[Rfam]
This 101-nucleotide RNA from Streptococcus sp. DD13 belongs to the Rfam family "PreQ1-II (pre queuosine) riboswitch aptamer". Rfam describes the family as follows. preQ1-II riboswitch was first reported for Weinberg et al. 2007 it was recognised in Streptococcaceae and Lactococcus families in 5' untranslated regions of genes of a membrane protein classified as COG4708 or DUF988.

Nucleotides: 101
Stems, first nucleotide, its partner, number of pairs: 019032005034059007046090006069083005
Number, partner (000 for none) and nucleotide at each position: 001000u002000c003000u004000g005000c006000u007000a008000u009000a010000c011000u012000u013000a014000a015000c016000a017000a018000c019032g020031u021030u022029g023028c024000a025000u026000c027000u028023g029022c030021a031020a032019c033000c034059c035058u036057u037056g038055a039054c040053c041000c042000u043000u044000c045000c046090c047089u048088u049087c050086u051085u052000u053040g054039g055038u056037c057036a058035a059034g060000c061000a062000u063000a064000u065000u066000a067000g068000a069083a070082g071081c072080g073079a074000a075000a076000c077000a078000a079073u080072c081071g082070c083069u084000a085051a086050a087049g088048g089047a090046g091000a092000u093000u094000u095000u096000u097000a098000c099000a100000u101000g
The match comes from Rfam's covariance-model search (78 bits).
For this family Rfam cites "Confirmation of a second natural preQ1 aptamer class in Streptococcaceae bacteria" (Meyer et al., RNA, 2008).
Lineage of the source: Bacteria > Bacillati > Bacilli > Lactobacillales > Streptococcus.
Rfam links the family to the GO term queuosine biosynthetic process.